[Rfam]
RNA sequence: GUGAAGCCCGCGCCGGGACGUGUUUUGGAAGGUCCGGUGCGGUGAAGGUGGGUAAAUCUCCGGCCCUUGCACAGGCAGGAGUUCCAUUGGGCGUUCGGCGUCUGGGAGUUGCACCUCUCAGGCGCCGUCG
Numbered sequence: 001g002u003g004a005a006g007c008c009c010g011c012g013c014c015g016g017g018a019c020g021u022g023u024u025u026u027g028g029a030a031g032g033u034c035c036g037g038u039g040c041g042g043u044g045a046a047g048g049u050g051g052g053u054a055a056a057u058c059u060c061c062g063g064c065c066c067u068u069g070c071a072c073a074g075g076c077a078g079g080a081g082u083u084c085c086a087u088u089g090g091g092c093g094u095u096c097g098g099c100g101u102c103u104g105g106g107a108g109u110u111g112c113a114c115c116u117c118u119c120a121g122g123c124g125c126c127g128u129c130g
Base pairs, nucleotide, nucleotide: 001092002091008042009041010040011039012038013037014036015035016034021031048087049086050085051084055083056082060079061078063076064075065074096127097126098125099124100123101122102121103120104119105118106117107116108115

A member of the RNA family "Streptomyces RNA 6925" from Streptomyces chattanoogensis, 130 nucleotides long. A search with the family's covariance model found it, with a score of 63 bits. By type it is a small RNA. Pairs were carried over by alignment from the consensus structure. Rfam's curators write: Identified by deep sequencing of transcriptome at the end of exponential growth phase. Sequencing size consistent with northern blot size. Streptomyces specific. A reference for the family is Vockenhuber et al. (2011), "Deep sequencing-based identification of small non-coding RNAs in Streptomyces coelicolor", RNA Biol.